[Rfam]
Record summary: The family of this 86-nucleotide RNA sequence from Esox lucius is "mir-181 microRNA precursor family". The match comes from Rfam's covariance-model search (70 bits). For this family Rfam cites "New microRNAs from mouse and human" (Lagos-Quintana et al., RNA, 2003). Taxonomically the source falls in Esox (Eukaryota, Gnathostomata, Actinopteri, Esocidae).
RNA sequence: UUGUCUCGGUGAACAUUCAACGCUGUCGGUGAGUUUGGUAUGGAUCACAUGAAAACCAUCGACCGUUGACUGUGCCCCGCGGCUUG
Numbered sequence: 001u002u003g004u005c006u007c008g009g010u011g012a013a014c015a016u017u018c019a020a021c022g023c024u025g026u027c028g029g030u031g032a033g034u035u036u037g038g039u040a041u042g043g044a045u046c047a048c049a050u051g052a053a054a055a056c057c058a059u060c061g062a063c064c065g066u067u068g069a070c071u072g073u074g075c076c077c078c079g080c081g082g083c084u085u086g
Stems, first nucleotide, its partner, number of pairs: 001086001003084001004082002007079002014072002017069006025063007033056004